[Rfam]
RNA sequence: AAAACCUCGUCUUGCUCGCACGCCAUCCGGGCGUCGAGCAGUGUUUUUCCUGAGGGAAGACAUAGGCACUCCGCCUGGACGAGGAGAGAGG
Numbered sequence: 001a002a003a004a005c006c007u008c009g010u011c012u013u014g015c016u017c018g019c020a021c022g023c024c025a026u027c028c029g030g031g032c033g034u035c036g037a038g039c040a041g042u043g044u045u046u047u048u049c050c051u052g053a054g055g056g057a058a059g060a061c062a063u064a065g066g067c068a069c070u071c072c073g074c075c076u077g078g079a080c081g082a083g084g085a086g087a088g089a090g091g
Base pairs, nucleotide, nucleotide: 005084006083007082008081009080010079011078012077015038016037017036020034021033022032023031024030041063042062043061044060045059046058047057048056049055050054064076065075066074067073
About this RNA:
The record is a 91-nucleotide RNA, which matches "RAGATH-10 RNA" in Rfam. On this family, see Weinberg et al., Nat Chem Biol 2015: "New classes of self-cleaving ribozymes revealed by comparative genomics analysis".